[Rfam]
Description:
A member of the RNA family "SAM riboswitch aptamer (S box leader)" from Paenibacillus montaniterrae, 106 nucleotides long. A search with the family's covariance model found it, with a score of 82 bits.
RNA sequence: UUCUUAUCAAGAGCAGGCGGAGGGACUAGCCCUAUGAAGCCCGGCAACCGGCAUUCCAUGUACGGUGCUAAUUCUUGCGGAAACAAUGGUUUCUGAGAGAUGAGAG
Numbered sequence: 001u002u003c004u005u006a007u008c009a010a011g012a013g014c015a016g017g018c019g020g021a022g023g024g025a026c027u028a029g030c031c032c033u034a035u036g037a038a039g040c041c042c043g044g045c046a047a048c049c050g051g052c053a054u055u056c057c058a059u060g061u062a063c064g065g066u067g068c069u070a071a072u073u074c075u076u077g078c079g080g081a082a083a084c085a086a087u088g089g090u091u092u093c094u095g096a097g098a099g100a101u102g103a104g105a106g
Stems, first nucleotide, its partner, number of pairs: 001106008013042001016041003022032003026077001028075002043069004048065002051061004073098001078095006